[Rfam]
The family of this 181-nucleotide RNA sequence from Lachancea mirantina is "Small nucleolar RNA snR35". A search with the family's covariance model found it, with a score of 133 bits. The family's RNA type in Rfam is H/ACA-box small nucleolar RNA.
RNA sequence: GAAAACCAAUAAUCGUGCGGAUUAUAAAAACCAGGACUAUAAAACCGUGUUGCUAGUAUACCGUCUUUUAUGGUGCACUUAGCGUCAAGUCCAUCGGAGAGACCAUUCUCGUUCAUCUUAGUGCCCUUUUGUGUAAAGUCAAAAUCUCACCUUUAGACGAGGGCUGGUAGAACGUACAGAU
Numbered sequence: 001g002a003a004a005a006c007c008a009a010u011a012a013u014c015g016u017g018c019g020g021a022u023u024a025u026a027a028a029a030a031c032c033a034g035g036a037c038u039a040u041a042a043a044a045c046c047g048u049g050u051u052g053c054u055a056g057u058a059u060a061c062c063g064u065c066u067u068u069u070a071u072g073g074u075g076c077a078c079u080u081a082g083c084g085u086c087a088a089g090u091c092c093a094u095c096g097g098a099g100a101g102a103c104c105a106u107u108c109u110c111g112u113u114c115a116u117c118u119u120a121g122u123g124c125c126c127u128u129u130u131g132u133g134u135a136a137a138g139u140c141a142a143a144a145u146c147u148c149a150c151c152u153u154u155a156g157a158c159g160a161g162g163g164c165u166g167g168u169a170g171a172a173c174g175u176a177c178a179g180a181u
Base pairs, nucleotide, nucleotide: 009025010024011023012022013021014020031097032096034092035091036090037089052083053082054081055080056078057077059075060074061073062072063069116172118170119169120168123164124163125162126161127160130159131158132157134155135154136153137152

Pairs were carried over by alignment from the consensus structure, which was predicted with WAR.